[Rfam]
RNA sequence: UGCGAUGAGUCGAGAAGGACCAAGUAACAUUUUUGUUACUCCGCUGCGGCGGCUAGUGGUCAGUGUCGAUAGCAGAGCACAUUUGCUGCCGGAUUGCAGCGUGCUUGAAUACAUUACAUUGUGGAGUGU
Numbered sequence: 001u002g003c004g005a006u007g008a009g010u011c012g013a014g015a016a017g018g019a020c021c022a023a024g025u026a027a028c029a030u031u032u033u034u035g036u037u038a039c040u041c042c043g044c045u046g047c048g049g050c051g052g053c054u055a056g057u058g059g060u061c062a063g064u065g066u067c068g069a070u071a072g073c074a075g076a077g078c079a080c081a082u083u084u085g086c087u088g089c090c091g092g093a094u095u096g097c098a099g100c101g102u103g104c105u106u107g108a109a110u111a112c113a114u115u116a117c118a119u120u121g122u123g124g125a126g127u128g129u
Stems, first nucleotide, its partner, number of pairs: 018061005023040006041052004076105005085100005116129005
The record is a 129-nucleotide sequence from Ligilactobacillus apodemi, which matches "Enterococcus sRNA 68 (Lacto-3 RNA)" in Rfam. The match comes from Rfam's covariance-model search (110 bits).